[Rfam]
RNA: Small nucleolar RNA SNORA69
RNA sequence: AAAGCAGGCUGCAAUUGCAGCGCCUCGUCCCGUGGGGGCGCUGCCAUUCCCCUGCUGAGAGUGACCCUGUUACACUGCCUUCGGCCUCACCGGCGCCGUGGGGGGGCCGCUUGUCCCUGACAGGGACAUGU
Dot-bracket structure: ..((((((.........(((((((((........))))))))).......))))))........((((((((.........(((((((.(((......))).)))))))........))))))))......